RNA: TPP riboswitch aptamer (THI element)
Organism: Paenibacillus sp. Root444D2
RNA sequence: AUGAAUCCCUAGGGGCGCCGCAAGGCUGAGACAGAGCAAUCUGAACCCUUCGAACCUGAACUGGGUCAUACCAGCGGAGGAAAGUGGAACGAUCAUUGG
Dot-bracket structure: .....((.((((((.((((....)))......(((....))))..)))).....(((...((((......))))...)))..)).))............